[Rfam]
RNA sequence: UGUGCUGUAUGGCAUCUGUACCCAGCAGUAUCUUCCUGACUGGGUGUUCAACAAGUAGUGCUUAUAUUUCAGCAGAUGGCACCAUUGGUUUUUAUGUUGCUGUGCUGGUUAAACUUGCUAUCCCUGUUGAAACAAGU
Numbered sequence: 001u002g003u004g005c006u007g008u009a010u011g012g013c014a015u016c017u018g019u020a021c022c023c024a025g026c027a028g029u030a031u032c033u034u035c036c037u038g039a040c041u042g043g044g045u046g047u048u049c050a051a052c053a054a055g056u057a058g059u060g061c062u063u064a065u066a067u068u069u070c071a072g073c074a075g076a077u078g079g080c081a082c083c084a085u086u087g088g089u090u091u092u093u094a095u096g097u098u099g100c101u102g103u104g105c106u107g108g109u110u111a112a113a114c115u116u117g118c119u120a121u122c123c124c125u126g127u128u129g130a131a132a133c134a135a136g137u
Stems, first nucleotide, its partner, number of pairs: 002061006015054001018047008026038003065126002068120001070117003078106005
Record summary: Rfam assigns this 137-nucleotide RNA from Piaya cayana to the family "Small nucleolar RNA SNORA8". The match comes from Rfam's covariance-model search (59 bits). ACA8 is a member of the H/ACA class of snoRNA that guide the sites of modification of uridines to pseudouridines. Rfam links the family to the GO terms nucleolus and RNA processing. The family is grouped with related families in Rfam's "SNORA8 clan".